[Rfam]
RNA sequence: CCGGCUCCGGUUCACCCCGCACCUGUCGGGGACCCGGCGGCC
Dot-bracket structure: ..(((.((((....(((((.......)))))..))))..)))
Numbered sequence: 001c002c003g004g005c006u007c008c009g010g011u012u013c014a015c016c017c018c019g020c021a022c023c024u025g026u027c028g029g030g031g032a033c034c035c036g037g038c039g040g041c042c
Stems, first nucleotide, its partner, number of pairs: 003042003007037004015031005